[Rfam]
RNA sequence: UGAACCUCGCCUGGGUAAACGCUAGCCACGUGCCCAGUAUCGAUUGUUGCGGCGGCUGUAUAAGACCUUUGGUCGAAGUCGCCGCUUCCGCGUGCACCUAAAGUUAAUGAGGAUGGAGCGAUCGUAGGUGGCCAUGCAACGUUGAAUGGAUUUUGGGGUUGCCCCGAAAUUUUGUACCUGUUGGAUCCUGCCCAAGGUUUGUGCAUACCUGAAGGCAACAUCGUUUGCAGGAUUAUUGGCAAGUUGCAAGGGAAGGCCCGGGGUCGGCGGCCC
Numbered sequence: 001u002g003a004a005c006c007u008c009g010c011c012u013g014g015g016u017a018a019a020c021g022c023u024a025g026c027c028a029c030g031u032g033c034c035c036a037g038u039a040u041c042g043a044u045u046g047u048u049g050c051g052g053c054g055g056c057u058g059u060a061u062a063a064g065a066c067c068u069u070u071g072g073u074c075g076a077a078g079u080c081g082c083c084g085c086u087u088c089c090g091c092g093u094g095c096a097c098c099u100a101a102a103g104u105u106a107a108u109g110a111g112g113a114u115g116g117a118g119c120g121a122u123c124g125u126a127g128g129u130g131g132c133c134a135u136g137c138a139a140c141g142u143u144g145a146a147u148g149g150a151u152u153u154u155g156g157g158g159u160u161g162c163c164c165c166g167a168a169a170u171u172u173u174g175u176a177c178c179u180g181u182u183g184g185a186u187c188c189u190g191c192c193c194a195a196g197g198u199u200u201g202u203g204c205a206u207a208c209c210u211g212a213a214g215g216c217a218a219c220a221u222c223g224u225u226u227g228c229a230g231g232a233u234u235a236u237u238g239g240c241a242a243g244u245u246g247c248a249a250g251g252g253a254a255g256g257c258c259c260g261g262g263g264u265c266g267g268c269g270g271c272c273c
Stems, first nucleotide, its partner, number of pairs: 012036004019031003023242001025240002038130004045124002048120002050115002160267001161264006183258002186256001188255002190216003195210004221253002224250007
A member of the RNA family "Group II catalytic intron D1-D4-6" from Roseimaritima multifibrata, 273 nucleotides long. Gene Ontology term of the family: Group II intron splicing. A search with the family's covariance model found it, with a score of 57 bits. Rfam's curators write: Group II introns are found in rRNA, tRNA and mRNA of organelles in fungi, plants and protists, and also in mRNA in bacteria. The source organism's lineage runs through Bacteria, Planctomycetota, Planctomycetia, Pirellulaceae and Roseimaritima. Pairs were carried over by alignment from the consensus structure.